Shown here is a 237-nucleotide sequence from Anaerostipes hadrus, a member of the family "Cis-regulator of HTH transcription factor". Rfam's curators write: This element was identified by RNA deep sequencing of Clostridioides difficile 630 where it is located immediately upstream of an uncharacterized HTH-type Transcriptional regulator. Homologues are found widely across firmicutes, consistently located 5' of transcriptional regulators of similar size and sequence, which strongly supports a cis-regulatory function. The base pairs follow the family's consensus structure, which was predicted with LocARNA. The organism belongs to Anaerostipes, within Bacteria.
RNA sequence: CUUUUUUACGCAUAUGUAAUCAUCUCAAUACAUUUUACUGUUCCUGUUGAUUUUCUGACAGGUAUAGAAAAACGUAUUAUAUGGUUCAUCAGUUCCUAGUGUGUAAAAAGAACAAAAUUACUGUUAUACGGUAAAUAAAAAAAACCGUUAUCGGCAGUAACCUUUUUGCAUAUCCAAAAAUAUUUCUGAUUUGAUGGCGGUCAAGAUAAAGCCGCCGUUUUUCUUUUUCCUCAAUUC
Numbered sequence: 001c002u003u004u005u006u007u008a009c010g011c012a013u014a015u016g017u018a019a020u021c022a023u024c025u026c027a028a029u030a031c032a033u034u035u036u037a038c039u040g041u042u043c044c045u046g047u048u049g050a051u052u053u054u055c056u057g058a059c060a061g062g063u064a065u066a067g068a069a070a071a072a073c074g075u076a077u078u079a080u081a082u083g084g085u086u087c088a089u090c091a092g093u094u095c096c097u098a099g100u101g102u103g104u105a106a107a108a109a110g111a112a113c114a115a116a117a118u119u120a121c122u123g124u125u126a127u128a129c130g131g132u133a134a135a136u137a138a139a140a141a142a143a144a145c146c147g148u149u150a151u152c153g154g155c156a157g158u159a160a161c162c163u164u165u166u167u168g169c170a171u172a173u174c175c176a177a178a179a180a181u182a183u184u185u186c187u188g189a190u191u192u193g194a195u196g197g198c199g200g201u202c203a204a205g206a207u208a209a210a211g212c213c214g215c216c217g218u219u220u221u222u223c224u225u226u227u228u229c230c231u232c233a234a235u236u237c
Base pairs, nucleotide, nucleotide: 001110002109003108004107007105008104011101013099028077029076030075031074033072034071035070036069038067039066040065041064043062044061045060046059047058048057049056078091119159120158121157122156123155124154125153126151128148129147130146131145193219194218195217196216198214199213200212201211